Shown here is a 110-nucleotide RNA sequence from Lederbergia citrea, a member of the family "TPP riboswitch aptamer (THI element)". The organism belongs to Lederbergia, within Bacteria. The family's consensus secondary structure is taken from published work. Gene Ontology term of the family: thiamine pyrophosphate binding.
[Rfam]
RNA sequence: UAUGGAAUGUAGGGGAACCGGUCGGGCCGGUUGAGAUAGCAUCCUUUAGAUGCUGACCCUUUGAACCUGCUCUGGCUCAUACCAGCGAAGGGAACGUUAAUUCAUUCAAG
Numbered sequence: 001u002a003u004g005g006a007a008u009g010u011a012g013g014g015g016a017a018c019c020g021g022u023c024g025g026g027c028c029g030g031u032u033g034a035g036a037u038a039g040c041a042u043c044c045u046u047u048a049g050a051u052g053c054u055g056a057c058c059c060u061u062u063g064a065a066c067c068u069g070c071u072c073u074g075g076c077u078c079a080u081a082c083c084a085g086c087g088a089a090g091g092g093a094a095c096g097u098u099a100a101u102u103c104a105u106u107c108a109a110g
Base pairs, nucleotide, nucleotide: 006098007097008096009095010094011060012059013058014057017031018030019029020028021027038054039053040052041051042050066091067090068089072085073084074083075082